[Rfam]
Rfam assigns this 73-nucleotide RNA sequence from Renibacterium salmoninarum to the family "Actino-pnp RNA".
RNA sequence: CGCGGUCCUCGGUAGUGGUUUACGGGCAAGUUGCUAAGGCAACGCUCCCCGUGGGCCUCGAUCGAAGACCGGG
Numbered sequence: 001c002g003c004g005g006u007c008c009u010c011g012g013u014a015g016u017g018g019u020u021u022a023c024g025g026g027c028a029a030g031u032u033g034c035u036a037a038g039g040c041a042a043c044g045c046u047c048c049c050c051g052u053g054g055g056c057c058u059c060g061a062u063c064g065a066a067g068a069c070c071g072g073g
Base pairs, nucleotide, nucleotide: 001073003071004070005069006068007067009065010064011063012062013061017057018056019055020054021053022052023051024050025049026048030046
The organism belongs to Renibacterium salmoninarum, within Bacteria. Pairs were carried over by alignment from the consensus structure, which is taken from published work.